[Rfam]
RNA sequence: AAAGACCGGCUGGAUACCUGUGUGUCCGGCCCACAAGUGGAGGCUCCGAACUCCCACCUGGCCGUCCUCACGGACGGCGGGUCACCGGUCUGGUGGCGACCAUCGUUCCGUACGGACGAUGGGGCCGCCCGAUGACGCGCCCCGCGGUUGACCGCGGCGCUCCGGUUUCCUUGGAGCCCCGCCUGUGUCCCGUCCGGGGCAUUUUUC
Number, nucleotide and partner (000 for none) at each position: 001a000002a000003a000004g090005a089006c088007c087008g086009g085010c000011u000012g027013g026014a000015u000016a000017c000018c000019u000020g000021u000022g000023u000024g000025u000026c013027c012028g083029g082030c081031c080032c079033a000034c060035a059036a000037g057038u056039g055040g054041a052042g051043g000044c000045u000046c000047c000048g000049a000050a000051c042052u041053c000054c040055c039056a038057c037058c000059u035060g034061g078062c077063c076064g075065u074066c073067c072068u000069c000070a000071c000072g067073g066074a065075c064076g063077g062078c061079g032080g031081g030082u029083c028084a000085c009086c008087g007088g006089u005090c004091u000092g129093g128094u127095g126096g125097c000098g000099a000100c122101c121102a120103u119104c118105g117106u116107u115108c000109c000110g000111u000112a000113c000114g000115g107116a106117c105118g104119a103120u102121g101122g100123g000124g000125c096126c095127g094128c093129c092130c000131g000132a000133u000134g000135a000136c000137g000138c000139g200140c199141c198142c197143c196144g195145c192146g191147g190148u000149u000150g188151a186152c185153c000154g182155c181156g180157g179158c000159g177160c176161u175162c174163c173164g000165g000166u000167u000168u000169c000170c000171u000172u000173g163174g162175a161176g160177c159178c000179c157180c156181g155182c154183c000184u000185g152186u151187g000188u150189c000190c147191c146192g145193u000194c000195c144196g143197g142198g141199g140200c139201a000202u000203u000204u000205u000206u000207c000
RNA: Streptomyces RNA 1601
Organism: Streptomyces laurentii